[Rfam]
RNA sequence: UUAGCUUUGAUAUGUCUGGUAUUCUUGGGUUCAGUGAUAACCAGAACUAUUAGACAUAUCGAAGAUCGA
Numbered sequence: 001u002u003a004g005c006u007u008u009g010a011u012a013u014g015u016c017u018g019g020u021a022u023u024c025u026u027g028g029g030u031u032c033a034g035u036g037a038u039a040a041c042c043a044g045a046a047c048u049a050u051u052a053g054a055c056a057u058a059u060c061g062a063a064g065a066u067c068g069a
Stems, first nucleotide, its partner, number of pairs: 008061014022046001028042004
RNA: mir-50 microRNA precursor family